[Rfam]
RNA sequence: GAGCUGAAUGUGAGAAUUGGAGGAAAUUAAACCCAUUGGCAUAGUAUUUUGCAGAAUGGGUUUAAUUUCCUCCAAUAUCUCAUCUCCAGCUU
Numbered sequence: 001g002a003g004c005u006g007a008a009u010g011u012g013a014g015a016a017u018u019g020g021a022g023g024a025a026a027u028u029a030a031a032c033c034c035a036u037u038g039g040c041a042u043a044g045u046a047u048u049u050u051g052c053a054g055a056a057u058g059g060g061u062u063u064a065a066u067u068u069c070c071u072c073c074a075a076u077a078u079c080u081c082a083u084c085u086c087c088a089g090c091u092u
Stems, first nucleotide, its partner, number of pairs: 004089003008085001011082004016076006023069008032060002